[Rfam]
RNA sequence: AUAAGUCUUCAGGGCAGGGUGCAAGUCCCUACCGGCGGUAAAGCCCGCGAGCCGAGAGGCAUGAUCCGGUGAGAUUCCGGGGCCGACAGUAUAGUCUGGAUGAAAGAAGAAUUUC
Numbered sequence: 001a002u003a004a005g006u007c008u009u010c011a012g013g014g015c016a017g018g019g020u021g022c023a024a025g026u027c028c029c030u031a032c033c034g035g036c037g038g039u040a041a042a043g044c045c046c047g048c049g050a051g052c053c054g055a056g057a058g059g060c061a062u063g064a065u066c067c068g069g070u071g072a073g074a075u076u077c078c079g080g081g082g083c084c085g086a087c088a089g090u091a092u093a094g095u096c097u098g099g100a101u102g103a104a105a106g107a108a109g110a111a112u113u114u115c
Stems, first nucleotide, its partner, number of pairs: 003113002006110005017029003031095002033085002035048004043083002053059001065081005087098003
RNA: FMN riboswitch aptamer (RFN element)